[Rfam]
RNA: PyrR binding site
Organism: Companilactobacillus farciminis
RNA sequence: ACAACUUUUAAUUAAGUCCAGAGAGGCUUAGAAAGUAACAAUUAGGAGGGGAACCUUCUCAAACUAAACUUUCUUUGUCUGUUGGCAGAGAAAGUUUUUUUAUU
Numbered sequence: 001a002c003a004a005c006u007u008u009u010a011a012u013u014a015a016g017u018c019c020a021g022a023g024a025g026g027c028u029u030a031g032a033a034a035g036u037a038a039c040a041a042u043u044a045g046g047a048g049g050g051g052a053a054c055c056u057u058c059u060c061a062a063a064c065u066a067a068a069c070u071u072u073c074u075u076u077g078u079c080u081g082u083u084g085g086c087a088g089a090g091a092a093a094g095u096u097u098u099u100u101u102a103u104u
Stems, first nucleotide, its partner, number of pairs: 004036006013030006042061001044059006066097014